[Rfam]
RNA sequence: CAAGGACCCGGUGAAAUUCCGGGUGGCUAUUCCGGCCGCCGAUCCGCCGGACAACA
Numbered sequence: 001c002a003a004g005g006a007c008c009c010g011g012u013g014a015a016a017u018u019c020c021g022g023g024u025g026g027c028u029a030u031u032c033c034g035g036c037c038g039c040c041g042a043u044c045c046g047c048c049g050g051a052c053a054a055c056a
Stems, first nucleotide, its partner, number of pairs: 006024006031051006
RNA: sul1 RNA
Organism: Novosphingobium aromaticivorans